[Rfam]
RNA: Plastid-psbA-3 3UTR RNA
RNA sequence: AGGAGUAAUACCCCAAUUCUUGUUUUGUCAAGAGGUUGGUAUUACUCCUGCAUUUU
Numbered sequence: 001a002g003g004a005g006u007a008a009u010a011c012c013c014c015a016a017u018u019c020u021u022g023u024u025u026u027g028u029c030a031a032g033a034g035g036u037u038g039g040u041a042u043u044a045c046u047c048c049u050g051c052a053u054u055u056u
Stems, first nucleotide, its partner, number of pairs: 001049012017034006
Dot-bracket structure: ((((((((((((....((((((......))))))...)))))))))))).......